[Rfam]
Nucleotides: 079
Base pairs, nucleotide, nucleotide: 001079002078003077004076005075006074
Number, partner (000 for none) and nucleotide at each position: 001079a002078a003077u004076c005075c006074c007000u008000a009000u010000g011000a012000a013000g014000a015000a016000c017000g018000u019000u020000a021000u022000g023000u024000a025000u026000u027000c028000a029000a030000a031000u032000a033000a034000a035000a036000g037000u038000a039000g040000u041000g042000g043000c044000c045000u046000g047000a048000u049000g050000u051000c052000c053000a054000u055000u056000g057000a058000u059000g060000a061000u062000a063000u064000c065000c066000u067000g068000u069000u070000c071000u072000g073000a074006g075005g076004g077003a078002u079001u
The record is a 79-nucleotide sequence from Handroanthus impetiginosus, which matches "Small nucleolar RNA R21" in Rfam. The match comes from Rfam's covariance-model search (67 bits). Gene Ontology terms of the family: nucleolus and RNA processing. Rfam 15.1 lists 472 matches to the family in 146 species. It is annotated as a C/D-box small nucleolar RNA. For this family Rfam cites "Identification of 66 box C/D snoRNAs in Arabidopsis thaliana: extensive gene duplications generated multiple isoforms predicting new ribosomal RNA 2'-O-methylation sites" (Barneche et al., J Mol Biol, 2001).